Background: This 113-nucleotide RNA from Nocardia puris belongs to the Rfam family "SAM (S-adenosyl methionine) riboswitch aptamer". About the family: SAM-IV is a mRNA element that regulates gene expression via direct sensing of S-adenosylmethionine (SAM or AdoMet).
[Rfam]
RNA sequence: GGUCAUGAGUGCCAACGCCAAGCCCCGGCUCGUUGGCCGGCAACCCUCCAGCUGCGGUGGGGUGCUCCGGGUGAGGACCUGGCCACCCGACGGCCGGGUGGCAAGCGCACCAG
Numbered sequence: 001g002g003u004c005a006u007g008a009g010u011g012c013c014a015a016c017g018c019c020a021a022g023c024c025c026c027g028g029c030u031c032g033u034u035g036g037c038c039g040g041c042a043a044c045c046c047u048c049c050a051g052c053u054g055c056g057g058u059g060g061g062g063u064g065c066u067c068c069g070g071g072u073g074a075g076g077a078c079c080u081g082g083c084c085a086c087c088c089g090a091c092g093g094c095c096g097g098g099u100g101g102c103a104a105g106c107g108c109a110c111c112a113g
Stems, first nucleotide, its partner, number of pairs: 001079004009038001011037006021030002039066003044062003048057002082102008